[Rfam]
RNA: Bacterial RNase P class A
Organism: Faecalibacterium sp. An121
RNA sequence: CGAGUGGAACAUACGGCGGCGGGGCGGCCUGGUCCGUCCUGAGGAAAGUCCGGGCUUCACAGAGCACGGUAACUGCUAACGGCAGCCGGGGGUGACCCCAGGGAAAGUGCAACAGAAAGGAAACCGCUGCGCCCACGGCGCGGUAAGGAUGAAAGGGCGAGGUAAGAGCUCACCAGCGGAUGGGUGACCAUCCGGCUUUGUAAACCCUACCGGAAGCAACGCCUAUAUGGGACAUACAAACGCUGCUCGCGUGUCCUGAAGGCGGCACGAGCCCGUCAGCAAUGGCGGGCCUAGACAGAUCGUCGUUUAAUACAGAACCCGGCUUACGGUCUAUCUCGUUUU
Number, nucleotide and partner (000 for none) at each position: 001c338002g337003a336004g335005u000006g000007g332008a000009a330010c329011a000012u000013a306014c305015g304016g303017c302018g301019g000020c041021g040022g039023g038024g037025c036026g035027g034028c000029c000030u000031g000032g000033u000034c027035c026036g025037u024038c023039c022040u021041g020042a000043g000044g000045a000046a325047a324048g323049u000050c322051c321052g320053g319054g318055c216056u215057u214058c213059a000060c000061a000062g248063a247064g246065c245066a000067c212068g211069g210070u209071a208072a000073c085074u084075g083076c082077u000078a000079a000080c000081g000082g076083c075084a074085g073086c000087c101088g099089g098090g097091g096092g000093u000094g000095a000096c091097c090098c089099c088100a000101g087102g207103g206104a000105a000106a000107g205108u204109g201110c200111a199112a000113c000114a000115g000116a000117a000118a000119g000120g000121a000122a000123a000124c148125c147126g144127c143128u142129g141130c140131g139132c138133c137134c000135a000136c000137g133138g132139c131140g130141c129142g128143g127144u126145a000146a000147g125148g124149a000150u000151g000152a000153a000154a000155g000156g174157g173158c000159g171160a170161g169162g000163u000164a000165a000166g000167a000168g000169c161170u160171c159172a000173c157174c156175a000176g196177c194178g193179g192180a191181u190182g189183g188184g000185u000186g000187a000188c183189c182190a181191u180192c179193c178194g177195g000196c176197u000198u000199u111200g110201u109202a000203a000204a108205c107206c103207c102208u071209a070210c069211c068212g067213g058214a057215a056216g055217c000218a000219a000220c264221g263222c262223c261224u000225a000226u000227a000228u000229g000230g256231g255232a254233c253234a252235u251236a000237c000238a000239a000240a000241c000242g250243c249244u000245g065246c064247u063248c062249g243250c242251g235252u234253g233254u232255c231256c230257u000258g000259a000260a000261g223262g222263c221264g220265g000266c000267a000268c000269g000270a000271g290272c289273c288274c287275g286276u285277c284278a283279g000280c000281a000282a000283u278284g277285g276286c275287g274288g273289g272290c271291c000292u000293a000294g000295a000296c000297a000298g000299a000300u000301c018302g017303u016304c015305g014306u013307u000308u000309a000310a000311u000312a000313c000314a000315g000316a000317a000318c054319c053320c052321g051322g050323c048324u047325u046326a000327c000328g000329g010330u009331c000332u007333a000334u000335c004336u003337c002338g001339u000340u000341u000342u000